[Rfam]
RNA sequence: GUAAGCAGAGUGAGAAUCUCUGCCGCCGAAUGACCAAGGGUUCCUGGGCCAGGUUGUUCCGCCCAGGGUGAGCCGGGACCUAAGGCGAGGCCGACAGGCGUAGUCGAUGGACGACGGGUGGAUAUUCCCGUGCCCGUGAUGGUGCGCCCGUGGCGAGGCCGGUGAUGCUGACCAUCCGAACCCGCCGGCCGUCCUUCGGGGUGGCCGGGUGGGGGAGCGUGGGACCCGAACCGGUAGUAGCCAAGCGAUGGGGUGACGCAGGAGGGUAGCCCCGCCAGUGAGUGGUGGUACUGGUGCAAGCCGGUAGCCCGACGCCCAGGUAAAUCCGGGUGUCUCCCUUGGAUGGGACGGGUGAGGGGUGAUGCGUAGCCGAAUGCGGCGAAGCAGGGUGUGCCCAUGCUGCCAAGAAAAGCCUCUAGCGAGUGCCGUUGCGGCCCGUACCCGAAACCGACACAGGUGGUCAGGUAGAGGAUACCGAGGCGAU
Numbered sequence: 001g002u003a004a005g006c007a008g009a010g011u012g013a014g015a016a017u018c019u020c021u022g023c024c025g026c027c028g029a030a031u032g033a034c035c036a037a038g039g040g041u042u043c044c045u046g047g048g049c050c051a052g053g054u055u056g057u058u059c060c061g062c063c064c065a066g067g068g069u070g071a072g073c074c075g076g077g078a079c080c081u082a083a084g085g086c087g088a089g090g091c092c093g094a095c096a097g098g099c100g101u102a103g104u105c106g107a108u109g110g111a112c113g114a115c116g117g118g119u120g121g122a123u124a125u126u127c128c129c130g131u132g133c134c135c136g137u138g139a140u141g142g143u144g145c146g147c148c149c150g151u152g153g154c155g156a157g158g159c160c161g162g163u164g165a166u167g168c169u170g171a172c173c174a175u176c177c178g179a180a181c182c183c184g185c186c187g188g189c190c191g192u193c194c195u196u197c198g199g200g201g202u203g204g205c206c207g208g209g210u211g212g213g214g215g216a217g218c219g220u221g222g223g224a225c226c227c228g229a230a231c232c233g234g235u236a237g238u239a240g241c242c243a244a245g246c247g248a249u250g251g252g253g254u255g256a257c258g259c260a261g262g263a264g265g266g267u268a269g270c271c272c273c274g275c276c277a278g279u280g281a282g283u284g285g286u287g288g289u290a291c292u293g294g295u296g297c298a299a300g301c302c303g304g305u306a307g308c309c310c311g312a313c314g315c316c317c318a319g320g321u322a323a324a325u326c327c328g329g330g331u332g333u334c335u336c337c338c339u340u341g342g343a344u345g346g347g348a349c350g351g352g353u354g355a356g357g358g359g360u361g362a363u364g365c366g367u368a369g370c371c372g373a374a375u376g377c378g379g380c381g382a383a384g385c386a387g388g389g390u391g392u393g394c395c396c397a398u399g400c401u402g403c404c405a406a407g408a409a410a411a412g413c414c415u416c417u418a419g420c421g422a423g424u425g426c427c428g429u430u431g432c433g434g435c436c437c438g439u440a441c442c443c444g445a446a447a448c449c450g451a452c453a454c455a456g457g458u459g460g461u462c463a464g465g466u467a468g469a470g471g472a473u474a475c476c477g478a479g480g481c482g483a484u
Base pairs, nucleotide, nucleotide: 005023006022007021008020009019010018024482025481026480027479032462033461034460035459038442039441043067044066045065046064047063048062052060053059074438075437076436077435079110080109084105085104086103088101090099091098092097115228116227117226118225232434234432235431236430237429238428240426241425245420246419250416251415252414253413254412258403259402260401261400264396265395266394269390270389271388272387274295275294276293277292278291279290296365297364300360301359302358307353308352309351311334312333313332314331315330316329317328319327320326367382369380370379371378372377448457449456464476465475466474467473
RNA: Bacterial large subunit ribosomal RNA, nucleotides 1354 to 1837